[Rfam]
RNA: Mason-Pfizer monkey virus packaging signal
Organism: Rhinopithecus roxellana
RNA sequence: UGGCGCCCGAACAGGGACCUGGACACUGGGGAAAAAGUGAGGAAGAAGGCAGUAAAGUCGGCCGAAAGUGAAAGUGGAAAGAAAUUCCUCCGGACGUCGUGGGAGCCUGCCGCGUUGGAACCAGAGGUGAGAAACAGUGUCUGAUUAUGGGACAAGAAUUAAGCCAGUAUCAAAUUUAUGUAGGGCAAUUAAAAGAGGCUUUAAAAACACGAGGAGCAAAGGUUAAAUGUAAUGAUUUGUUUAAGUUUUUUGAUUUUGUGAAAGAAACCUGCCCUU
Numbered sequence: 001u002g003g004c005g006c007c008c009g010a011a012c013a014g015g016g017a018c019c020u021g022g023a024c025a026c027u028g029g030g031g032a033a034a035a036a037g038u039g040a041g042g043a044a045g046a047a048g049g050c051a052g053u054a055a056a057g058u059c060g061g062c063c064g065a066a067a068g069u070g071a072a073a074g075u076g077g078a079a080a081g082a083a084a085u086u087c088c089u090c091c092g093g094a095c096g097u098c099g100u101g102g103g104a105g106c107c108u109g110c111c112g113c114g115u116u117g118g119a120a121c122c123a124g125a126g127g128u129g130a131g132a133a134a135c136a137g138u139g140u141c142u143g144a145u146u147a148u149g150g151g152a153c154a155a156g157a158a159u160u161a162a163g164c165c166a167g168u169a170u171c172a173a174a175u176u177u178a179u180g181u182a183g184g185g186c187a188a189u190u191a192a193a194a195g196a197g198g199c200u201u202u203a204a205a206a207a208c209a210c211g212a213g214g215a216g217c218a219a220a221g222g223u224u225a226a227a228u229g230u231a232a233u234g235a236u237u238u239g240u241u242u243a244a245g246u247u248u249u250u251u252g253a254u255u256u257u258g259u260g261a262a263a264g265a266a267a268c269c270u271g272c273c274c275u276u
Stems, first nucleotide, its partner, number of pairs: 006030003015024001038046001086129001088127001089125002095117001098114005137153002140151004160203003163199003210252008220238006261276002264273001